[Rfam]
RNA sequence: AUGAAUAUUUUGCCGAAUUUCUGUCUCAGAAAACGGGGGAUCCAUUUUGGGUGAAUUGAUCUCGCUUCAGAGUGAUCAUAGGGAACCUUCAACCGAACCCUUCAGCUAACCUCGUAGGCACUUGGAAGGGGAAAC
Numbered sequence: 001a002u003g004a005a006u007a008u009u010u011u012g013c014c015g016a017a018u019u020u021c022u023g024u025c026u027c028a029g030a031a032a033a034c035g036g037g038g039g040a041u042c043c044a045u046u047u048u049g050g051g052u053g054a055a056u057u058g059a060u061c062u063c064g065c066u067u068c069a070g071a072g073u074g075a076u077c078a079u080a081g082g083g084a085a086c087c088u089u090c091a092a093c094c095g096a097a098c099c100c101u102u103c104a105g106c107u108a109a110c111c112u113c114g115u116a117g118g119c120a121c122u123u124g125g126a127a128g129g130g131g132a133a134a135c
Stems, first nucleotide, its partner, number of pairs: 011120004018032006033115006049100003057078004081094002
RNA: c-di-AMP riboswitch aptamer (ydaO/yuaA leader)